[Rfam]
RNA sequence: GAGUUCACUGCAUGUGCAAGAGUUCGGCUGUAUGAAAAGCCUUGCUCGUAAUGAAAGUAAAGAACAUUCUUGCAAUGUUUUAAGUGUGAUUUCUGUCAUCUGGUGCAAAUCAUGACAAUGAACGCAACACUGACAGGUUCUAUUGCCGUUGACAAAGAGCUUAGUAAGAGUAUAUGCAAUGAGACCCGAAAGAUGGUGAACUUAAUGUGUGUAGAAUGAAGCCAGGGGAAACCCUGGUGGAAGUUCGUAGCGGUUCUGACGUGCAAAUCGAUCGUCAAACAUGCAUUAAGGGGCGAAAGACUAAUCGAACCAUCUAGUAGCUGGUU
Numbered sequence: 001g002a003g004u005u006c007a008c009u010g011c012a013u014g015u016g017c018a019a020g021a022g023u024u025c026g027g028c029u030g031u032a033u034g035a036a037a038a039g040c041c042u043u044g045c046u047c048g049u050a051a052u053g054a055a056a057g058u059a060a061a062g063a064a065c066a067u068u069c070u071u072g073c074a075a076u077g078u079u080u081u082a083a084g085u086g087u088g089a090u091u092u093c094u095g096u097c098a099u100c101u102g103g104u105g106c107a108a109a110u111c112a113u114g115a116c117a118a119u120g121a122a123c124g125c126a127a128c129a130c131u132g133a134c135a136g137g138u139u140c141u142a143u144u145g146c147c148g149u150u151g152a153c154a155a156a157g158a159g160c161u162u163a164g165u166a167a168g169a170g171u172a173u174a175u176g177c178a179a180u181g182a183g184a185c186c187c188g189a190a191a192g193a194u195g196g197u198g199a200a201c202u203u204a205a206u207g208u209g210u211g212u213a214g215a216a217u218g219a220a221g222c223c224a225g226g227g228g229a230a231a232c233c234c235u236g237g238u239g240g241a242a243g244u245u246c247g248u249a250g251c252g253g254u255u256c257u258g259a260c261g262u263g264c265a266a267a268u269c270g271a272u273c274g275u276c277a278a279a280c281a282u283g284c285a286u287u288a289a290g291g292g293g294c295g296a297a298a299g300a301c302u303a304a305u306c307g308a309a310c311c312a313u314c315u316a317g318u319a320g321c322u323g324g325u326u
Stems, first nucleotide, its partner, number of pairs: 005182003009178009020047003026041004051058002083131005091122002133165002135162003139158003146151001185324002188321001192314006201290011212278001214246004221238007250275004255271002258269002292302002

Annotation:
Eukaryotic large subunit ribosomal RNA: a 326-nucleotide part of an RNA from Rotaria sordida. For this family Rfam cites "Crystal structure of the ribosome at 5.5 A resolution" (Yusupov et al., Science, 2001). The base pairs follow the family's consensus structure, which is taken from published work.